[Rfam]
RNA sequence: UCUGGGGUAUGGCAUAAGUAUGGAGAAGCCAUGACCUCAAU
Numbered sequence: 001u002c003u004g005g006g007g008u009a010u011g012g013c014a015u016a017a018g019u020a021u022g023g024a025g026a027a028g029c030c031a032u033g034a035c036c037u038c039a040a041u
Base pairs, nucleotide, nucleotide: 003039004038005037006036007035008034009032010031011030012029013028
RNA: MAT2A 3'UTR stem loop D